[Rfam]
Record summary
Rfam assigns this 55-nucleotide RNA sequence from Neorhizobium sp. SOG26 to the family "COG3860 RNA". The source organism's lineage runs through Bacteria, Pseudomonadati, Pseudomonadota, Alphaproteobacteria and Neorhizobium. The family's consensus secondary structure is taken from published work. By type it is a cis-regulatory element.

RNA sequence: CGGUCUGCAGUUCACCGAGGCGUCGCCGUCCCCACAAGGGAAGCUAAACCUGCCA
Number, nucleotide and partner (000 for none) at each position: 001c017002g016003g015004u014005c000006u000007g000008c000009a000010g000011u000012u000013c000014a004015c003016c002017g001018a000019g000020g000021c000022g000023u000024c000025g000026c000027c000028g000029u041030c040031c039032c038033c000034a000035c000036a000037a000038g032039g031040g030041a029042a000043g000044c000045u000046a000047a000048a000049c000050c000051u000052g000053c000054c000055a000